[Rfam]
The family of this 303-nucleotide sequence from Vanilla planifolia is "Plant signal recognition particle RNA". The match comes from Rfam's covariance-model search (195 bits).
RNA sequence: GCCGAGUUCGGUGACGCGAACUUGUGACCCGAGUGGGGGCUUGGUGGCGCGGAUGGUGCGCCCAAUCUUGUUGGUUGAUCGGUAACUGCAGCUUGUCUGGCUUGCCUGAACCAAGUUGUGGAGUCGAUUUGUGCGGUUCAGGCGGAGGCCUGAAUUGCGCUGAUCCUAUAGUGGAGGACACCGCGUGAGGCUGGUUAACAGAGCAGCGUUAACCUCCCGCUCUCAACGGUGGACAGAUAACAGGCCGGUGCGGUUACCGAUCAAUUGGCCACAGGGUUGGUUUGUAAUUAGACCGCCACCUUU
Numbered sequence: 001g002c003c004g005a006g007u008u009c010g011g012u013g014a015c016g017c018g019a020a021c022u023u024g025u026g027a028c029c030c031g032a033g034u035g036g037g038g039g040c041u042u043g044g045u046g047g048c049g050c051g052g053a054u055g056g057u058g059c060g061c062c063c064a065a066u067c068u069u070g071u072u073g074g075u076u077g078a079u080c081g082g083u084a085a086c087u088g089c090a091g092c093u094u095g096u097c098u099g100g101c102u103u104g105c106c107u108g109a110a111c112c113a114a115g116u117u118g119u120g121g122a123g124u125c126g127a128u129u130u131g132u133g134c135g136g137u138u139c140a141g142g143c144g145g146a147g148g149c150c151u152g153a154a155u156u157g158c159g160c161u162g163a164u165c166c167u168a169u170a171g172u173g174g175a176g177g178a179c180a181c182c183g184c185g186u187g188a189g190g191c192u193g194g195u196u197a198a199c200a201g202a203g204c205a206g207c208g209u210u211a212a213c214c215u216c217c218c219g220c221u222c223u224c225a226a227c228g229g230u231g232g233a234c235a236g237a238u239a240a241c242a243g244g245c246c247g248g249u250g251c252g253g254u255u256a257c258c259g260a261u262c263a264a265u266u267g268g269c270c271a272c273a274g275g276g277u278u279g280g281u282u283u284g285u286a287a288u289u290a291g292a293c294c295g296c297c298a299c300c301u302u303u
Base pairs, nucleotide, nucleotide: 001040002039003038004023005022006021007020008019009018010017028037029036030035043300044299045298046297047296048295049294051293054290055289057286058285059284060282062280063279064278065277067276068275069274072271073270074269075268076267077262078261079260080259081258082257083256084255086253087252088251091249097248098247099246100245101244102243103242104241106236107235111232112231113230115227116226117225118224120223121222122221123220124219126165127164128163129162131160132159133158134157135156136155137154138153139152140151141150142149143148166171173217174216175215176214177213183209184208185207186206191201192200193199